[Rfam]
RNA sequence: AUGGGGAGUUCUUAGACCCCAUGGAUGUCGUGUUAAUAGCCGUGCUUUUGGCCGAGUGCGGUGGUUAGUGAAUC
Numbered sequence: 001a002u003g004g005g006g007a008g009u010u011c012u013u014a015g016a017c018c019c020c021a022u023g024g025a026u027g028u029c030g031u032g033u034u035a036a037u038a039g040c041c042g043u044g045c046u047u048u049u050g051g052c053c054g055a056g057u058g059c060g061g062u063g064g065u066u067a068g069u070g071a072a073u074c
Stems, first nucleotide, its partner, number of pairs: 001022006033068005039062009
The record is a 74-nucleotide sequence, which matches "L13-Bacteroidia ribosomal protein leader" in Rfam.